RNA: Enterococcus sRNA 84
Nucleotides: 087
Base pairs, nucleotide, nucleotide: 029047030046031045032044033043034042035041058079059078060077061076062075063074064073065072066071
Number, partner (000 for none) and nucleotide at each position: 001000u002000a003000c004000c005000a006000a007000c008000a009000a010000c011000a012000a013000c014000c015000u016000u017000u018000u019000u020000a021000u022000u023000u024000u025000u026000c027000a028000u029047u030046u031045u032044a033043c034042u035041c036000u037000u038000a039000u040000u041035g042034a043033g044032u045031a046030a047029a048000u049000a050000c051000u052000c053000c054000u055000u056000u057000u058079c059078c060077a061076u062075c063074g064073g065072c066071a067000a068000a069000a070000c071066u072065g073064c074063c075062g076061g077060u078059g079058g080000u081000u082000u083000u084000u085000u086000u087000g